[Rfam]
RNA sequence: GCCCUUCCUUUUGGGCAGUCGUGCGCCUAUAUCGGGAGUGUCGGCGCAAGCCGACUAUGGUGAUAAACGGUGGCGUGAAAUAGACGCAGCGGACCCGGGGGCGGUACCCGGCGGCUCCACCACAGGCAGCGAUACAGAAAUGUGCCGAUGUCCGUGACGGGGCCGAACUAGGAUCGACGUGUGUUCAAAGACGACAUUUUUGCCCGGGCUGAGUAACCCGUUCAAGGCUCAAAACCCAAUAAGUGCCAACGAUAACGAAGCACUUGCUCUUGCAGCGUAAUUGAGGGGCGCAAGCCCUGACAUUAUCCUAAUAGAACGCGGCUGAACCCGCCGGGCAACAGAAGGGAAUUCA
Numbered sequence: 001g002c003c004c005u006u007c008c009u010u011u012u013g014g015g016c017a018g019u020c021g022u023g024c025g026c027c028u029a030u031a032u033c034g035g036g037a038g039u040g041u042c043g044g045c046g047c048a049a050g051c052c053g054a055c056u057a058u059g060g061u062g063a064u065a066a067a068c069g070g071u072g073g074c075g076u077g078a079a080a081u082a083g084a085c086g087c088a089g090c091g092g093a094c095c096c097g098g099g100g101g102c103g104g105u106a107c108c109c110g111g112c113g114g115c116u117c118c119a120c121c122a123c124a125g126g127c128a129g130c131g132a133u134a135c136a137g138a139a140a141u142g143u144g145c146c147g148a149u150g151u152c153c154g155u156g157a158c159g160g161g162g163c164c165g166a167a168c169u170a171g172g173a174u175c176g177a178c179g180u181g182u183g184u185u186c187a188a189a190g191a192c193g194a195c196a197u198u199u200u201u202g203c204c205c206g207g208g209c210u211g212a213g214u215a216a217c218c219c220g221u222u223c224a225a226g227g228c229u230c231a232a233a234a235c236c237c238a239a240u241a242a243g244u245g246c247c248a249a250c251g252a253u254a255a256c257g258a259a260g261c262a263c264u265u266g267c268u269c270u271u272g273c274a275g276c277g278u279a280a281u282u283g284a285g286g287g288g289c290g291c292a293a294g295c296c297c298u299g300a301c302a303u304u305a306u307c308c309u310a311a312u313a314g315a316a317c318g319c320g321g322c323u324g325a326a327c328c329c330g331c332c333g334g335g336c337a338a339c340a341g342a343a344g345g346g347a348a349u350u351c352a
Stems, first nucleotide, its partner, number of pairs: 040055005059204005070197003074193003085183003089180003095111005112165007205220004210231003319333004324351003329346001
The family of this 352-nucleotide RNA from Sphingobium subterraneum is "Alphaproteobacteria transfer-messenger RNA". Lineage of the source: Bacteria > Pseudomonadati > Alphaproteobacteria > Sphingobiaceae > Sphingobium. By type it is a non-coding RNA gene. About the family: Bacterial tmRNA, also known as 10Sa RNA or SsrA, is named for its dual tRNA and mRNA-like properties. Its role is to liberate the mRNA from a stalled ribosome. To accomplish this part of the tmRNA is used as a reading frame that ends in a translation stop signal. The broken mRNA is replaced in the ribosome by the tmRNA and translation of the tmRNA leads to addition of a proteolysis tag to the incomplete protein enabling recognition by a protease. Recently a number of permuted tmRNA genes have been found encoded in two parts. tmRNAs have been identified in eubacteria and some chloroplasts but are absent from archaeal and eukaryote nuclear genomes.